The record is a 74-nucleotide sequence from Kiritimatiella glycovorans, which matches "tRNA" in Rfam. NCBI's taxonomy places the organism under Bacteria, Pseudomonadati, Kiritimatiellota, Kiritimatiellales, Kiritimatiella. The family's consensus secondary structure is taken from published work.
RNA sequence: CGGGGUGUAGCUCAGCCUGGCAGAGCGCUACGUUCGGGACGUAGAAGUCGCUGGUUCGAAUCCAGUCACCCCGA
Numbered sequence: 001c002g003g004g005g006u007g008u009a010g011c012u013c014a015g016c017c018u019g020g021c022a023g024a025g026c027g028c029u030a031c032g033u034u035c036g037g038g039a040c041g042u043a044g045a046a047g048u049c050g051c052u053g054g055u056u057c058g059a060a061u062c063c064a065g066u067c068a069c070c071c072c073g074a
Base pairs, nucleotide, nucleotide: 001073002072003071004070005069006068007067010026011025012024013023028044029043030042031041032040050066051065052064053063054062

The match comes from Rfam's covariance-model search (64 bits).